[Rfam]
Nucleotides: 062
Base pairs, nucleotide, nucleotide: 034059035058036057037056038055039054040053041052042051043050044049
Number, partner (000 for none) and nucleotide at each position: 001000a002000g003000c004000a005000g006000u007000u008000a009000c010000a011000g012000c013000u014000c015000u016000u017000u018000u019000a020000g021000a022000a023000u024000u025000g026000g027000u028000c029000u030000a031000g032000c033000a034059g035058g036057u037056u038055u039054u040053c041052u042051g043050g044049u045000c046000c047000u048000c049044a050043c051042c052041a053040g054039a055038a056037g057036a058035c059034u060000c061000u062000c
About this RNA: U7 small nuclear RNA: a 62-nucleotide RNA sequence from Microcebus murinus. From the family's description: Animal histone pre-mRNAs are spliced by a different mechanism than nuclear pre-mRNAs and self-splicing introns. This processing involves the U7 snRNP, which contains only one RNA species: U7. Taxonomically the source falls in Microcebus (Eukaryota, Dipnotetrapodomorpha, Theria, Cheirogaleidae).